[Rfam]
RNA sequence: CCAUUUUCAGGAUGGAAGCUGUGACAAUAUGUAGGUUUUAAUUAAUUUAUAUUUCAUAUAUUGCACACCUCCCGGCCUAUAAAUGA
Dot-bracket structure: .(((((...((.((..(..((.(.(((((((.........................)))))))).))..)..)).))...))))).
RNA: mir-310 microRNA precursor family
Organism: Drosophila grimshawi